[Rfam]
Description
Small nucleolar RNA SNORA77: a 129-nucleotide RNA from Sphaeramia orbicularis. Taxonomically the source falls in Sphaeramia (Eukaryota, Euteleostomi, Teleostei, Euteleosteomorpha). A reference for the family is Schattner et al. (2006), "A computational screen for mammalian pseudouridylation guide H/ACA RNAs", RNA. Rfam links the family to the GO terms nucleolus and RNA processing. The family's RNA type in Rfam is H/ACA-box small nucleolar RNA. ACA63 (SNORA77) is a member of the H/ACA class of snoRNAs that guide the sites of modification of uridines to pseudouridines. This snoRNA was identified by computational screening and its expression in mouse experimentally verified by Northern blot and primer extension analysis.

RNA sequence: GCAGACACACUCUGUUCUUUGCUGCUCACUCCAGCUAGGGACUUUUUCUGUCUGCUACAUGACGAUGCAGAAUCUAACACAUCACUGGCUUUCUGAAAGGCUGGUGUCAGUUGGUCCUGCCACAUUAUG
Numbered sequence: 001g002c003a004g005a006c007a008c009a010c011u012c013u014g015u016u017c018u019u020u021g022c023u024g025c026u027c028a029c030u031c032c033a034g035c036u037a038g039g040g041a042c043u044u045u046u047u048c049u050g051u052c053u054g055c056u057a058c059a060u061g062a063c064g065a066u067g068c069a070g071a072a073u074c075u076a077a078c079a080c081a082u083c084a085c086u087g088g089c090u091u092u093c094u095g096a097a098a099g100g101c102u103g104g105u106g107u108c109a110g111u112u113g114g115u116c117c118u119g120c121c122a123c124a125u126u127a128u129g
Stems, first nucleotide, its partner, number of pairs: 001055006014042006022034003067120004072115001074114005083106009
Dot-bracket structure: ((((((.......((((((..(((.......)))..)))))).......))))))...........((((.(.(((((....(((((((((......)))))))))...)))))).)))).........